[Rfam]
The family of this 151-nucleotide RNA sequence from Oryza meyeriana is "MIR162_2 microRNA precursor family". Gene Ontology terms of the family: miRNA-mediated post-transcriptional gene silencing and RISC complex. The family has 5 seed sequences and 43 matches in Rfam 15.1. The family is grouped with related families in Rfam's "MIR167 microRNA precursor clan".

RNA sequence: GCCUGGGGGCAGUGGUUUAUCGAUCUGUUCCCUGCCUUGUGCUGCUGUGCUGAUCCGAUGUGUCAGUGUUAGUGAUUUUCAUAAGGAAAAGGAUGUGAUGUUUCUUGAUGAUGCAACGCAGGAAUCGAUCGAUAAACCUCUGCAUCCAGAU
Numbered sequence: 001g002c003c004u005g006g007g008g009g010c011a012g013u014g015g016u017u018u019a020u021c022g023a024u025c026u027g028u029u030c031c032c033u034g035c036c037u038u039g040u041g042c043u044g045c046u047g048u049g050c051u052g053a054u055c056c057g058a059u060g061u062g063u064c065a066g067u068g069u070u071a072g073u074g075a076u077u078u079u080c081a082u083a084a085g086g087a088a089a090a091g092g093a094u095g096u097g098a099u100g101u102u103u104c105u106u107g108a109u110g111a112u113g114c115a116a117c118g119c120a121g122g123a124a125u126c127g128a129u130c131g132a133u134a135a136a137c138c139u140c141u142g143c144a145u146c147c148a149g150a151u
Stems, first nucleotide, its partner, number of pairs: 003149005009143004014138012028124004034119002037116005
Dot-bracket structure: ..(((((.((((.((((((((((((..((((..((.(((((......................................................................))))).)).))))..)))))))))))).)))).)))))..